[Rfam]
RNA sequence: AUCGUUCAUCUCUUUUAGCAACUUUUCUAAAAUCCAGAGAGGUUCUGAUGGAGACGGAAUUAGGGGAAUACUCCCGAAGGAACGCGCU
Numbered sequence: 001a002u003c004g005u006u007c008a009u010c011u012c013u014u015u016u017a018g019c020a021a022c023u024u025u026u027c028u029a030a031a032a033u034c035c036a037g038a039g040a041g042g043u044u045c046u047g048a049u050g051g052a053g054a055c056g057g058a059a060u061u062a063g064g065g066g067a068a069u070a071c072u073c074c075c076g077a078a079g080g081a082a083c084g085c086g087c088u
Stems, first nucleotide, its partner, number of pairs: 003084005009054005057085001063075003